[Rfam]
Purine riboswitch aptamer: a 102-nucleotide RNA sequence from Bacillus sp. FJAT-26390. Pairs were carried over by alignment from the consensus structure, which is taken from published work. It scores 53 bits against the family's covariance model. Rfam describes the family as follows. Riboswitches are metabolite binding domains within certain messenger RNAs that serve as precision sensors for their corresponding targets. Taxonomically the source falls in Bacillus (Bacteria, Bacillati, Caryophanales, Bacillaceae).
RNA sequence: AUGAAAUAUAACAUUAACUCUUGUAUAAGCUCAUUAAUCGGUUUGAGCGUCUCGACCAGGCAACCGUAAUUGCCCCAGGCUACAAGAGGCCGCAUGAGUCGA
Numbered sequence: 001a002u003g004a005a006a007u008a009u010a011a012c013a014u015u016a017a018c019u020c021u022u023g024u025a026u027a028a029g030c031u032c033a034u035u036a037a038u039c040g041g042u043u044u045g046a047g048c049g050u051c052u053c054g055a056c057c058a059g060g061c062a063a064c065c066g067u068a069a070u071u072g073c074c075c076c077a078g079g080c081u082a083c084a085a086g087a088g089g090c091c092g093c094a095u096g097a098g099u100c101g102a
Base pairs, nucleotide, nucleotide: 018088019087020086021085022084023083024082025081029048030047031046032045033044057078059074060073061072062071063070